[Rfam]
RNA sequence: UGGUGCCUGACGGGAACGACCGUAUAGUACGAGAGGAACUACGGUUGGUGGCCACUGGUGUACCAGUCAUUCGAGAGAGUGUUGCUGGGAAGCUACGCCACACGGGGUAACGGCUGAACGCAUCUAAGCCGGAAACCCACCUGGAAAAGAGGCACCGCUGAGAUCACUCGUCUAAGACGAGAUCGAUAGACUCGGGGUGUACGCGUCGAGGCAACGAGACGUUCAGCCCACGAGUACUAACAGAUCGAAG
Numbered sequence: 001u002g003g004u005g006c007c008u009g010a011c012g013g014g015a016a017c018g019a020c021c022g023u024a025u026a027g028u029a030c031g032a033g034a035g036g037a038a039c040u041a042c043g044g045u046u047g048g049u050g051g052c053c054a055c056u057g058g059u060g061u062a063c064c065a066g067u068c069a070u071u072c073g074a075g076a077g078a079g080u081g082u083u084g085c086u087g088g089g090a091a092g093c094u095a096c097g098c099c100a101c102a103c104g105g106g107g108u109a110a111c112g113g114c115u116g117a118a119c120g121c122a123u124c125u126a127a128g129c130c131g132g133a134a135a136c137c138c139a140c141c142u143g144g145a146a147a148a149g150a151g152g153c154a155c156c157g158c159u160g161a162g163a164u165c166a167c168u169c170g171u172c173u174a175a176g177a178c179g180a181g182a183u184c185g186a187u188a189g190a191c192u193c194g195g196g197g198u199g200u201a202c203g204c205g206u207c208g209a210g211g212c213a214a215c216g217a218g219a220c221g222u223u224c225a226g227c228c229c230a231c232g233a234g235u236a237c238u239a240a241c242a243g244a245u246c247g248a249a250g
Base pairs, nucleotide, nucleotide: 001157002156003155004154005153006152007151008150011143012142013141014140017047018046019045020044021043022042023041024040048101049100050099051098052097056095057094058093063088064087065086066085067084068081069080070079071078072077104138105137106136111131112130113129114128115127162246163245164244165243167181168180169179170178187239188238189237190235191234192233193232194231195229196228197227203222204221205220206219207218210215

This 250-nucleotide part of an RNA from Halovenus carboxidivorans belongs to the Rfam family "Archaeal large subunit ribosomal RNA". The family has 91 seed sequences and 2,955 matches in Rfam 15.1. It scores 2836 bits against the family's covariance model.